RNA sequence: CUGCCCAUCAGAGUGGCUGCGAUUUGUUAUGAACACAAUUCAUAUCACAGCCAGCUUUGAUGAGCGGAG
Numbered sequence: 001c002u003g004c005c006c007a008u009c010a011g012a013g014u015g016g017c018u019g020c021g022a023u024u025u026g027u028u029a030u031g032a033a034c035a036c037a038a039u040u041c042a043u044a045u046c047a048c049a050g051c052c053a054g055c056u057u058u059g060a061u062g063a064g065c066g067g068a069g
Stems, first nucleotide, its partner, number of pairs: 006062008014053006021046002025044003
Rfam assigns this 69-nucleotide sequence from Argiope bruennichi to the family "mir-2 microRNA precursor family". Lineage of the source: Eukaryota > Metazoa > Protostomia > Araneae > Argiope. A reference for the family is Lee and Ambros (2001), "An extensive class of small RNAs in Caenorhabditis elegans", Science. The match comes from Rfam's covariance-model search (58 bits).